Shown here is a 109-nucleotide RNA from Nannospalax galili, a member of the family "Small nucleolar RNA SNORD23".
By type it is a C/D-box small nucleolar RNA.
The base pairs follow the family's consensus structure.
Its family is annotated with nucleolus and RNA processing in the Gene Ontology.
It scores 107 bits against the family's covariance model.
The organism belongs to Nannospalax, within Eukaryota.

RNA sequence: AGCCCAGUGCUGACACCAUCCUUGCUCCCUGUGCCCUCAGGGGCUGUGGGCCACAACAUGGCUGCUCUUGGACUGGGCCAGUUGAGACAUUGCCUGGGGGCUGAGGGCA
Number, nucleotide and partner (000 for none) at each position: 001a000002g108003c107004c106005c105006a000007g000008u000009g000010c000011u000012g000013a000014c000015a000016c000017c000018a000019u000020c000021c000022u000023u000024g000025c000026u000027c000028c000029c000030u000031g000032u000033g000034c000035c000036c000037u000038c000039a000040g000041g000042g000043g000044c000045u000046g000047u000048g000049g000050g000051c000052c000053a000054c000055a000056a000057c000058a000059u000060g000061g000062c000063u000064g000065c000066u000067c000068u000069u000070g000071g000072a000073c000074u000075g000076g000077g000078c000079c000080a000081g000082u000083u000084g000085a000086g000087a000088c000089a000090u000091u000092g000093c000094c000095u000096g000097g000098g000099g000100g000101c000102u000103g000104a000105g005106g004107g003108c002109a000